[Rfam]
RNA sequence: UAUAAGGGAUUUUGAGUUUUUGUUUGCAACGUUUGACCACUCGUCUUAUUCAAAAAAUUUUGAAAUUAUUAAUUAUUUUAUUUGUGACUUACUUUAUUAUCUAUAGUACUUUAAGCACAACUUUUUAUUUUUUAUAUUUGCUGCAAAAAAAAUUUGAAUAAGACGAGUGGUCAAAUGUUACAAGCAAAAACUAAAAAUCCCUUAUA
Numbered sequence: 001u002a003u004a005a006g007g008g009a010u011u012u013u014g015a016g017u018u019u020u021u022g023u024u025u026g027c028a029a030c031g032u033u034u035g036a037c038c039a040c041u042c043g044u045c046u047u048a049u050u051c052a053a054a055a056a057a058u059u060u061u062g063a064a065a066u067u068a069u070u071a072a073u074u075a076u077u078u079u080a081u082u083u084g085u086g087a088c089u090u091a092c093u094u095u096a097u098u099a100u101c102u103a104u105a106g107u108a109c110u111u112u113a114a115g116c117a118c119a120a121c122u123u124u125u126u127a128u129u130u131u132u133u134a135u136a137u138u139u140g141c142u143g144c145a146a147a148a149a150a151a152a153u154u155u156g157a158a159u160a161a162g163a164c165g166a167g168u169g170g171u172c173a174a175a176u177g178u179u180a181c182a183a184g185c186a187a188a189a190a191c192u193a194a195a196a197a198u199c200c201c202u203u204a205u206a
Base pairs, nucleotide, nucleotide: 025182026181028179029178030177032175033174034173035172036171037170038169039168040167041166042165043164044163045162046161047160048159049158050157051156

Rfam assigns this 206-nucleotide RNA sequence from Oryza rufipogon to the family "MIR812 microRNA precursor family".
The family has 22 seed sequences and 57,451 matches in Rfam 15.1.
NCBI's taxonomy places the organism under Eukaryota, Viridiplantae, Embryophyta, Magnoliopsida, Oryza.
The match comes from Rfam's covariance-model search (84 bits).